[Rfam]
RNA: Group II catalytic intron D1-D4-3
Organism: Pontiella sulfatireligans
RNA sequence: UGACUGGUAACGGUUGGGUCUAAAGGAAGCGAUAGGAAGUGAAUGAUACAUAGCGUAAGCGAACCUGAUUCAGCAGGUGCAGUGCGGUAAGCGUGUAAAAUAGCGCGAUGCCCGGUUCUCGAACAGACUGCAUUUGUGAUUGAGGAUGGGAUGAUUCACAGGGAGCGGUGU
Dot-bracket structure: ((((((....))))))............(((.(......(((((.((.(((............(((.(....(((.(((((((..(((..((((........))))...)))..............))))))).)))...).)))))).).).)))))........).)))